[Rfam]
RNA sequence: AUAUCUGAUUCGCUGAAUUUCCUCGUCACGGCGGGGAAAACGGGGGAACCGAAUGCGCCUUGAGCGGAAUGAUUUUUAUUCUGUAAGGUGCGUGGGGUGAAUCCGCGGAAGCUAUCAACCGGAGAUUUAAUGUACGGCAGGCAACCGCGGAGGGGUGACUCUCACUACCCUAAUCCGACAGCUAACCUCGUAAGCGUUGUUCGAGAGAGGAU
Numbered sequence: 001a002u003a004u005c006u007g008a009u010u011c012g013c014u015g016a017a018u019u020u021c022c023u024c025g026u027c028a029c030g031g032c033g034g035g036g037a038a039a040a041c042g043g044g045g046g047a048a049c050c051g052a053a054u055g056c057g058c059c060u061u062g063a064g065c066g067g068a069a070u071g072a073u074u075u076u077u078a079u080u081c082u083g084u085a086a087g088g089u090g091c092g093u094g095g096g097g098u099g100a101a102u103c104c105g106c107g108g109a110a111g112c113u114a115u116c117a118a119c120c121g122g123a124g125a126u127u128u129a130a131u132g133u134a135c136g137g138c139a140g141g142c143a144a145c146c147g148c149g150g151a152g153g154g155g156u157g158a159c160u161c162u163c164a165c166u167a168c169c170c171u172a173a174u175c176c177g178a179c180a181g182c183u184a185a186c187c188u189c190g191u192a193a194g195c196g197u198u199g200u201u202c203g204a205g206a207g208a209g210g211a212u
Base pairs, nucleotide, nucleotide: 011196012195013194014193018039019038020037021036022035023034024033025032026031040191041190042189043188044187045186050094051093095176096175097174103150104149105148106147107146108145153170154169155168156167
This 212-nucleotide sequence from Paenibacillus apis belongs to the Rfam family "c-di-AMP riboswitch aptamer (ydaO/yuaA leader)". Rfam's curators write: This family represents a conserved RNA structure found upstream of the ydaO and yuaA genes in Bacillus subtilis and related genes in other bacteria. It scores 81 bits against the family's covariance model. Lineage of the source: Bacteria > Bacilli > Caryophanales > Paenibacillaceae > Paenibacillus.